Rfam assigns this 147-nucleotide RNA sequence from Mesorhizobium sp. Root554 to the family "speF leader". Rfam classes the family as a cis-regulatory leader. NCBI's taxonomy places the organism under Bacteria, Pseudomonadota, Hyphomicrobiales, Phyllobacteriaceae, Mesorhizobium. The match comes from Rfam's covariance-model search (81 bits). Rfam's curators write: This family is a putative regulatory RNA structure that is found upstream of the speF gene encoding ornithine decarboxylase in Agrobacterium tumefaciens and other alpha-proteobacteria.

[Rfam]
RNA sequence: UUCCGGUUCGUCCAAAGACCGGGGUUACUGAAGAGGCACACCAUCAUUGCCGGCAGUGCGGUUGGGAACUCCCAUCCAAGCCAAGGCAGACAAAGCGAGCAGGAGCCGGGCAAGGCUUCAGCUCAUCGCCGCGAGACGGCAUUUCAU
Numbered sequence: 001u002u003c004c005g006g007u008u009c010g011u012c013c014a015a016a017g018a019c020c021g022g023g024g025u026u027a028c029u030g031a032a033g034a035g036g037c038a039c040a041c042c043a044u045c046a047u048u049g050c051c052g053g054c055a056g057u058g059c060g061g062u063u064g065g066g067a068a069c070u071c072c073c074a075u076c077c078a079a080g081c082c083a084a085g086g087c088a089g090a091c092a093a094a095g096c097g098a099g100c101a102g103g104a105g106c107c108g109g110g111c112a113a114g115g116c117u118u119c120a121g122c123u124c125a126u127c128g129c130c131g132c133g134a135g136a137c138g139g140c141a142u143u144u145c146a147u
Base pairs, nucleotide, nucleotide: 001024002023003022004021005020006019007018009017035051036050037049038048058129059128060127086096099111100110